[Rfam]
RNA: c-di-AMP riboswitch aptamer (ydaO/yuaA leader)
Organism: Desulforamulus profundi
RNA sequence: ACUGAAAAAAUGCCGAAUCCCGGUAAACCCGGGUACGGAGGAACCAAUUUUGGGGUGAAUCCUCGCUCGUUAGGUAGGGACUUCCUUUGCCCGAACCCGUCAGCUAACUCCGGAGGCAAAAAGGAAAGGAGAA
Numbered sequence: 001a002c003u004g005a006a007a008a009a010a011u012g013c014c015g016a017a018u019c020c021c022g023g024u025a026a027a028c029c030c031g032g033g034u035a036c037g038g039a040g041g042a043a044c045c046a047a048u049u050u051u052g053g054g055g056u057g058a059a060u061c062c063u064c065g066c067u068c069g070u071u072a073g074g075u076a077g078g079g080a081c082u083u084c085c086u087u088u089g090c091c092c093g094a095a096c097c098c099g100u101c102a103g104c105u106a107a108c109u110c111c112g113g114a115g116g117c118a119a120a121a122a123g124g125a126a127a128g129g130a131g132a133a
Stems, first nucleotide, its partner, number of pairs: 011118004019033005036112005045052002053098003061074003077092003